[Rfam]
RNA sequence: GAGCCAUUAGCUCAGUUGGUAGAGCAAUUCCCUUUUAAGGAAUGGGUCGUUGGUUCGAGCCCAACAUGGCUCA
Numbered sequence: 001g002a003g004c005c006a007u008u009a010g011c012u013c014a015g016u017u018g019g020u021a022g023a024g025c026a027a028u029u030c031c032c033u034u035u036u037a038a039g040g041a042a043u044g045g046g047u048c049g050u051u052g053g054u055u056c057g058a059g060c061c062c063a064a065c066a067u068g069g070c071u072c073a
Stems, first nucleotide, its partner, number of pairs: 001072007010025004027043005049065005

About this RNA
The record is a 73-nucleotide RNA sequence from Denitrovibrio acetiphilus, which matches "tRNA" in Rfam. It scores 72 bits against the family's covariance model. By type it is a transfer RNA. The family's consensus secondary structure is taken from published work.